[Rfam]
RNA sequence: CAUCCAUCGAGAUCGGCGGAGGGACAGGCCCUUUGAUGCCGAGGCAACCCGGGGGUUUCCCGAAGGUGCCAAUUCCUGCGGUGACGCCGUCGCCGCGCAGAUGGUCG
Numbered sequence: 001c002a003u004c005c006a007u008c009g010a011g012a013u014c015g016g017c018g019g020a021g022g023g024a025c026a027g028g029c030c031c032u033u034u035g036a037u038g039c040c041g042a043g044g045c046a047a048c049c050c051g052g053g054g055g056u057u058u059c060c061c062g063a064a065g066g067u068g069c070c071a072a073u074u075c076c077u078g079c080g081g082u083g084a085c086g087c088c089g090u091c092g093c094c095g096c097g098c099a100g101a102u103g104g105u106c107g
Stems, first nucleotide, its partner, number of pairs: 001107001004104005013042005021031003025078004043070004048066002050062004074099001079095006
RNA: SAM riboswitch aptamer (S box leader)
Organism: Solilutibacter pythonis